[Rfam]
RNA sequence: AAUAUUCUUCAGGGCAGGGUGUAAUUCCCGACCGGCGGUAAGCGUUUUUGAUUUGUGUUUUGAUAUGUUUUGAUAUUAGAAAGAAGCGUAAGCCCGCGAGCGACAGCAUGAUCCGGUGUGAUUCCGGAGCCGACGGUACAGUCCGGAUGUGAGAAGAAGAAA
Number, nucleotide and partner (000 for none) at each position: 001a000002a000003u160004a000005u158006u157007c156008u155009u154010c153011a000012g000013g000014g000015c000016a000017g029018g028019g027020u000021g000022u000023a000024a000025u000026u000027c019028c018029c017030g000031a142032c141033c132034g131035g097036c096037g095038g094039u000040a000041a000042g000043c000044g000045u000046u000047u000048u000049u000050g000051a000052u000053u000054u000055g000056u000057g000058u000059u000060u000061u000062g000063a000064u000065a000066u000067g000068u000069u000070u000071u000072g000073a000074u000075a000076u000077u000078a000079g000080a000081a000082a000083g000084a000085a000086g000087c000088g000089u000090a000091a000092g000093c000094c038095c037096g036097c035098g000099a000100g000101c000102g000103a000104c000105a000106g000107c000108a000109u000110g000111a000112u128113c127114c126115g125116g124117u000118g000119u000120g000121a000122u000123u000124c116125c115126g114127g113128a112129g000130c000131c034132g033133a000134c145135g144136g143137u000138a000139c000140a000141g032142u031143c136144c135145g134146g000147a000148u000149g000150u000151g000152a000153g010154a009155a008156g007157a006158a005159g000160a003161a000162a000

Record summary:
The family of this 162-nucleotide RNA sequence from Eubacterium sp. CAG:146 is "FMN riboswitch aptamer (RFN element)". Pairs were carried over by alignment from the consensus structure, which is taken from published work. The source organism's lineage runs through Bacteria, Bacillati, Clostridia, Eubacteriaceae and Eubacterium.